RNA sequence: GGUUAACGGAGGAGGCAGACAUGGGACUGACGAGAUCUUUUAACGUCCUAUUGGUCAGUGCAGCGUUCGUGUUCGUGACGGCAAUGCUGUUCAUCUGAGGCCUGAGCCCGACGAACAGACAGUGGCAGGGAAUGCAUUACUCCUGAAAGCUAACGGUCAGACAUUUCAAAAACGCAUGUCCUCAGGACAUGCGUUUU
Numbered sequence: 001g002g003u004u005a006a007c008g009g010a011g012g013a014g015g016c017a018g019a020c021a022u023g024g025g026a027c028u029g030a031c032g033a034g035a036u037c038u039u040u041u042a043a044c045g046u047c048c049u050a051u052u053g054g055u056c057a058g059u060g061c062a063g064c065g066u067u068c069g070u071g072u073u074c075g076u077g078a079c080g081g082c083a084a085u086g087c088u089g090u091u092c093a094u095c096u097g098a099g100g101c102c103u104g105a106g107c108c109c110g111a112c113g114a115a116c117a118g119a120c121a122g123u124g125g126c127a128g129g130g131a132a133u134g135c136a137u138u139a140c141u142c143c144u145g146a147a148a149g150c151u152a153a154c155g156g157u158c159a160g161a162c163a164u165u166u167c168a169a170a171a172a173c174g175c176a177u178g179u180c181c182u183c184a185g186g187a188c189a190u191g192c193g194u195u196u197u
Stems, first nucleotide, its partner, number of pairs: 014047003023039004169197013
Rfam assigns this 197-nucleotide sequence from Rhizobium sp. BK376 to the family "Rhizobiales sRNA Atu_C9". The source organism's lineage runs through Bacteria, Pseudomonadati, Hyphomicrobiales, Rhizobiaceae and Rhizobium. The match comes from Rfam's covariance-model search (127 bits). On this family, see Wilms et al., RNA Biol 2012: "Deep sequencing uncovers numerous small RNAs on all four replicons of the plant pathogen Agrobacterium tumefaciens".